[Rfam]
RNA: Early nodulin 40
RNA sequence: AUGGAAGUCUUUUGGCAGGAAUCCAUCCAUGGAUCUUGAAAAGCAUGGAAUUUGGAGUGAGGGAUUCUGGCACCCUCCUCCAAAUUCAAAAAAGUUUGUAUAUGCUUAGCCAUCUUAAAGCAUCUGUAUGAAGAAGCUUUAGCUAAAUUUAGCAGAAGUUUCGGCUAAUGCGUAACAAACCGGCAAGUCACAGAAUGGCAAUGGAGGACGAUAGCACAAGUCUU
Numbered sequence: 001a002u003g004g005a006a007g008u009c010u011u012u013u014g015g016c017a018g019g020a021a022u023c024c025a026u027c028c029a030u031g032g033a034u035c036u037u038g039a040a041a042a043g044c045a046u047g048g049a050a051u052u053u054g055g056a057g058u059g060a061g062g063g064a065u066u067c068u069g070g071c072a073c074c075c076u077c078c079u080c081c082a083a084a085u086u087c088a089a090a091a092a093a094g095u096u097u098g099u100a101u102a103u104g105c106u107u108a109g110c111c112a113u114c115u116u117a118a119a120g121c122a123u124c125u126g127u128a129u130g131a132a133g134a135a136g137c138u139u140u141a142g143c144u145a146a147a148u149u150u151a152g153c154a155g156a157a158g159u160u161u162c163g164g165c166u167a168a169u170g171c172g173u174a175a176c177a178a179a180c181c182g183g184c185a186a187g188u189c190a191c192a193g194a195a196u197g198g199c200a201a202u203g204g205a206g207g208a209c210g211a212u213a214g215c216a217c218a219a220g221u222c223u224u
Stems, first nucleotide, its partner, number of pairs: 054081003094180006111170003207222002